RNA sequence: GUCAACUACCCCGCCCUGAAGGGCGGAGCUUUGGGGAACCGAAGCUAGGUUGACCAGGGGGCCGGAGCGAUCCGGCAGACGUUGGUAACAGGUCGUUCAGACGCACCGGCGAAUAAUGUUUCCUCAGUUCGCCGCUCUGCAAGGUGAGAAUCAUGCUGGGCAAAGGGAAAGGCCCGAAGGUUCUCACCGCACCCGCAAGGGUGGAGCCGGUUACCAACAACCCCGAGGGGAGAUGGGC
Numbered sequence: 001g002u003c004a005a006c007u008a009c010c011c012c013g014c015c016c017u018g019a020a021g022g023g024c025g026g027a028g029c030u031u032u033g034g035g036g037a038a039c040c041g042a043a044g045c046u047a048g049g050u051u052g053a054c055c056a057g058g059g060g061g062c063c064g065g066a067g068c069g070a071u072c073c074g075g076c077a078g079a080c081g082u083u084g085g086u087a088a089c090a091g092g093u094c095g096u097u098c099a100g101a102c103g104c105a106c107c108g109g110c111g112a113a114u115a116a117u118g119u120u121u122c123c124u125c126a127g128u129u130c131g132c133c134g135c136u137c138u139g140c141a142a143g144g145u146g147a148g149a150a151u152c153a154u155g156c157u158g159g160g161c162a163a164a165g166g167g168a169a170a171g172g173c174c175c176g177a178a179g180g181u182u183c184u185c186a187c188c189g190c191a192c193c194c195g196c197a198a199g200g201g202u203g204g205a206g207c208c209g210g211u212u213a214c215c216a217a218c219a220a221c222c223c224c225g226a227g228g229g230g231a232g233a234u235g236g237g238c
Stems, first nucleotide, its partner, number of pairs: 001054007010028001012025002015022002029044006057224004062075004081218009091208001103140002107134008115234001119233007143188010157176005
RNA: HNH endonuclease-associated RNA and ORF (HEARO) RNA